Shown here is a 75-nucleotide RNA from Haemonchus placei, a member of the family "mir-5928 microRNA precursor family".
The base pairs follow the family's consensus structure, which was predicted with RNAalifold.
Rfam links the family to the GO terms miRNA-mediated post-transcriptional gene silencing and RISC complex.
Taxonomically the source falls in Haemonchus (Eukaryota, Rhabditida, Rhabditina, Rhabditomorpha).
[Rfam]
RNA sequence: GGUCCAAAUUUGGAGUUGAGUAGAUUAGAAGGAUCAUCUGACUCUACUAAACUACUCUACUUCGAGUUUGUGCCU
Numbered sequence: 001g002g003u004c005c006a007a008a009u010u011u012g013g014a015g016u017u018g019a020g021u022a023g024a025u026u027a028g029a030a031g032g033a034u035c036a037u038c039u040g041a042c043u044c045u046a047c048u049a050a051a052c053u054a055c056u057c058u059a060c061u062u063c064g065a066g067u068u069u070g071u072g073c074c075u
Base pairs, nucleotide, nucleotide: 001074002073003072005070006069007068008067009066011064012063013062014061015060016059018057019056020055021054022053023052025050026049027048028047030045032043034041035040